Shown here is an 84-nucleotide RNA from Paenibacillus sp. UNC496MF, a member of the family "c-di-GMP-I riboswitch aptamer". It scores 76 bits against the family's covariance model. The family's consensus secondary structure is taken from published work. Gene Ontology term of the family: cyclic-di-GMP binding.
[Rfam]
RNA sequence: AUGCAGAUUGGGCAAACUGCGUGAAAGCGCAGGACGCAAAACCACGGGUCUAAAGAUUCUUUCUAUGAUAGCCGGGUUGCCAAC
Numbered sequence: 001a002u003g004c005a006g007a008u009u010g011g012g013c014a015a016a017c018u019g020c021g022u023g024a025a026a027g028c029g030c031a032g033g034a035c036g037c038a039a040a041a042c043c044a045c046g047g048g049u050c051u052a053a054a055g056a057u058u059c060u061u062u063c064u065a066u067g068a069u070a071g072c073c074g075g076g077u078u079g080c081c082a083a084c
Base pairs, nucleotide, nucleotide: 012037013036017032018031019030020029021028022027040078041077042076043075045074046073047072048069049068050067055063056062
Taxonomically the source falls in Paenibacillus (Bacteria, Bacillati, Bacillota, Caryophanales).